Shown here is a 71-nucleotide sequence, a member of the family "skipping-rope RNA". The family's consensus secondary structure is taken from published work. Rfam's curators put it in the seed alignment.
RNA sequence: AUAUCAAGAGGACAGAACAGGCAUCUGUCACCCUUUGUGGAGAUGUAGGGUACGCCGACCUACCUUGAUAU
Dot-bracket structure: ((((((((..(((((....[[[..))))).(........)....(((((....]]]..)))))))))))))